RNA sequence: UGCGCAAUCGGGAAUGAGGUUCUCCCACGCACUGCCGAAACCGCUUUUUGAGCUGAUGACUUCUGUGAUUUU
Numbered sequence: 001u002g003c004g005c006a007a008u009c010g011g012g013a014a015u016g017a018g019g020u021u022c023u024c025c026c027a028c029g030c031a032c033u034g035c036c037g038a039a040a041c042c043g044c045u046u047u048u049u050g051a052g053c054u055g056a057u058g059a060c061u062u063c064u065g066u067g068a069u070u071u072u
Stems, first nucleotide, its partner, number of pairs: 010026004016063006043053003
Record summary
The record is a 72-nucleotide RNA sequence from Ruminococcaceae bacterium AF10-16, which matches "Fluoride riboswitch aptamer (crcB RNA motif)" in Rfam. The family's consensus secondary structure is taken from published work. It scores 45 bits against the family's covariance model. Lineage of the source: Bacteria > Bacillati > Clostridia > Eubacteriales > Oscillospiraceae.